[Rfam]
RNA sequence: ACCCUGAUCCGGGCCCCUCUGGUGCGACCAACGUCGGCUGUUCGUGCGAUGUCGGAUCUCAUCG
Number, nucleotide and partner (000 for none) at each position: 001a000002c000003c000004c000005u000006g058007a057008u056009c055010c054011g053012g052013g000014c000015c000016c000017c000018u000019c000020u000021g000022g047023u046024g045025c044026g043027a042028c000029c040030a000031a000032c000033g000034u000035c000036g000037g000038c000039u000040g029041u000042u027043c026044g025045u024046g023047c022048g000049a000050u000051g000052u012053c011054g010055g009056a008057u007058c006059u000060c000061a000062u000063c000064g000
A member of the RNA family "terC RNA" from Lichenifustis flavocetrariae, 64 nucleotides long. The base pairs follow the family's consensus structure, which is taken from published work. The match comes from Rfam's covariance-model search (50 bits).